[Rfam]
RNA sequence: UAUUUAGUCUACUAGGGUUCCGUCGGUGUCUGUGCCGAGUCUGGUCCGAGAGUAGACAGUUCCCCUGCAGGGGGAGCGGACACGGAAGGAUAAAAACCUGGGAGAU
Numbered sequence: 001u002a003u004u005u006a007g008u009c010u011a012c013u014a015g016g017g018u019u020c021c022g023u024c025g026g027u028g029u030c031u032g033u034g035c036c037g038a039g040u041c042u043g044g045u046c047c048g049a050g051a052g053u054a055g056a057c058a059g060u061u062c063c064c065c066u067g068c069a070g071g072g073g074g075a076g077c078g079g080a081c082a083c084g085g086a087a088g089g090a091u092a093a094a095a096a097c098c099u100g101g102g103a104g105a106u
Stems, first nucleotide, its partner, number of pairs: 007057006015047002020044002022041001023038006059077007081101001083104001087099003
Shown here is a 106-nucleotide RNA sequence from Paenibacillus monticola, a member of the family "Guanidine-I riboswitch aptamer". The family has 100 seed sequences and 1,509 matches in Rfam 15.1. This family represents a conserved RNA structure found upstream of the ykkC and yxkD genes in Bacillus subtilis and related genes in other bacteria. The function of this family is unclear although it has been suggested that it may function to switch on efflux pumps and detoxification systems in response to harmful environmental molecules.